[Rfam]
The record is a 46-nucleotide sequence from Muraenolepis orangiensis, which matches "Histone 3' UTR stem-loop" in Rfam. About the family: The mRNAs of metazoan histone genes lack a poly-A tail. 3' end processing occurs at a site between a highly conserved stem-loop (modelled by this family) and a purine rich region around 20 nts downstream (the histone downstream element, or HDE). The stem-loop is bound by a 31 kDa stem-loop binding protein (SLBP - also termed the histone hairpin binding protein, or HBP). Together with U7 snRNA binding of the HDE, SLBP binding nucleate s the formation of the processing complex. A search with the family's covariance model found it, with a score of 39 bits. Rfam classes the family as a cis-regulatory element.

RNA sequence: CCAAAGGCUCUUUUAAGAGCCAUCCACCCAACCUUAAGAGAACAUU
Number, nucleotide and partner (000 for none) at each position: 001c000002c000003a000004a000005a000006g021007g020008c019009u018010c017011u016012u000013u000014u000015a000016a011017g010018a009019g008020c007021c006022a000023u000024c000025c000026a000027c000028c000029c000030a000031a000032c000033c000034u000035u000036a000037a000038g000039a000040g000041a000042a000043c000044a000045u000046u000